The record is a 201-nucleotide sequence from Enterobacter sp. 638, which matches "GlmZ RNA activator of glmS mRNA" in Rfam. Pairs were carried over by alignment from the consensus structure, which is taken from published work. Lineage of the source: Bacteria > Pseudomonadota > Gammaproteobacteria > Enterobacterales > Enterobacter. The family's RNA type in Rfam is small RNA. Rfam's curators put it in the seed alignment.

[Rfam]
RNA sequence: GUAGAUGCUCAUUCCACCUCUUAUGUUCGCCUUAGUGCCUCAUAAACUCAGGAAUGACGCAGAGCCAUUUACGGUGCUUAUCGUCCACCGACAGAUGUCGCUUCGGCCUCAUCAAACACCAUGGACACAACGUUGAGUGAAGCACCAAAUAUGUUGUCGAAUAGAUCUGUUUAACGCCUGCUUUUUAGCAGGCGUUUUUUU
Numbered sequence: 001g002u003a004g005a006u007g008c009u010c011a012u013u014c015c016a017c018c019u020c021u022u023a024u025g026u027u028c029g030c031c032u033u034a035g036u037g038c039c040u041c042a043u044a045a046a047c048u049c050a051g052g053a054a055u056g057a058c059g060c061a062g063a064g065c066c067a068u069u070u071a072c073g074g075u076g077c078u079u080a081u082c083g084u085c086c087a088c089c090g091a092c093a094g095a096u097g098u099c100g101c102u103u104c105g106g107c108c109u110c111a112u113c114a115a116a117c118a119c120c121a122u123g124g125a126c127a128c129a130a131c132g133u134u135g136a137g138u139g140a141a142g143c144a145c146c147a148a149a150u151a152u153g154u155u156g157u158c159g160a161a162u163a164g165a166u167c168u169g170u171u172u173a174a175c176g177c178c179u180g181c182u183u184u185u186u187a188g189c190a191g192g193c194g195u196u197u198u199u200u201u
Stems, first nucleotide, its partner, number of pairs: 001065002006061003009057004015052001017051001019044001027037001073146007083126005094113004156166003173196010